[Rfam]
RNA: RpsF leader
Organism: Candidatus Regiella insecticola
RNA sequence: GCCGUACAAAAACAAGUUCCUUGCCUCCAUGGGCUGCGGUUGGCUCUGUAUCAGGAGGCUGAAUAAUCCGUGAGGAGCAAUGCAAUG
Numbered sequence: 001g002c003c004g005u006a007c008a009a010a011a012a013c014a015a016g017u018u019c020c021u022u023g024c025c026u027c028c029a030u031g032g033g034c035u036g037c038g039g040u041u042g043g044c045u046c047u048g049u050a051u052c053a054g055g056a057g058g059c060u061g062a063a064u065a066a067u068c069c070g071u072g073a074g075g076a077g078c079a080a081u082g083c084a085a086u087g
Base pairs, nucleotide, nucleotide: 016078017077018076019075020074021073022072023059024058025057026056027055028054031046032045033044